Shown here is a 152-nucleotide sequence from Roseivivax sp. THAF197b, a member of the family "Ruegeria cis2 sRNA". Its family is annotated with regulation of gene expression in the Gene Ontology. It scores 82 bits against the family's covariance model. The family's RNA type in Rfam is small RNA. Taxonomically the source falls in Roseivivax (Bacteria, Pseudomonadota, Rhodobacterales, Roseobacteraceae).

Nucleotides: 152
Stems, first nucleotide, its partner, number of pairs: 002034001004032001007029002013023002036056004040051002063152001065150003069081004085146008100129002102126003106122002109118003
Number, partner (000 for none) and nucleotide at each position: 001000g002034a003000g004032g005000a006000a007029u008028u009000c010000c011000g012000c013023g014022g015000c016000c017000a018000g019000u020000a021000g022014u023013u024000c025000a026000a027000g028008a029007a030000a031000g032004c033000a034002u035000a036056g037055c038054c039053g040051c041050g042000c043000g044000c045000c046000u047000g048000g049000u050041c051040g052000a053039u054038g055037g056036c057000g058000u059000g060000a061000a062000a063152g064000a065150g066149c067148g068000g069081g070080u071079u072078c073000c074000a075000g076000u077000c078072g079071a080070a081069c082000a083000u084000g085146g086145c087144c088143a089142g090141c091140a092139u093000c094000u095000u096000c097000g098000g099000g100129g101128g102126c103125a104124g105000c106122a107121u108000g109118u110117u111116g112000g113000c114000c115000g116111c117110g118109a119000a120000c121107a122106u123000c124104u125103u126102g127000c128101c129100c130000g131000a132000g133000g134000c135000g136000a137000u138000c139092a140091u141090g142089u143088u144087g145086g146085c147000c148067c149066g150065c151000g152063c